[Rfam]
RNA sequence: UUAACUUAAAUUUGUGUGGAGUGGGAACAGUGCCCCUAGCGCAGGCAAACGUUUCAACUCCAUACAAAUUUGAGUUA
Numbered sequence: 001u002u003a004a005c006u007u008a009a010a011u012u013u014g015u016g017u018g019g020a021g022u023g024g025g026a027a028c029a030g031u032g033c034c035c036c037u038a039g040c041g042c043a044g045g046c047a048a049a050c051g052u053u054u055c056a057a058c059u060c061c062a063u064a065c066a067a068a069u070u071u072g073a074g075u076u077a
Base pairs, nucleotide, nucleotide: 008071009070010069011068012067013066014065015064016063018061020059021058022057024055025054026053027052028051034045035044
mir-2807 microRNA precursor family: a 77-nucleotide RNA sequence from Bombyx mori. Lineage of the source: Eukaryota > Eumetazoa > Mandibulata > Neoptera > Bombyx. A reference for the family is Liu et al. (2010), "MicroRNAs of Bombyx mori identified by Solexa sequencing", BMC Genomics. The match comes from Rfam's covariance-model search (58 bits). Its family is annotated with miRNA-mediated post-transcriptional gene silencing and RISC complex in the Gene Ontology.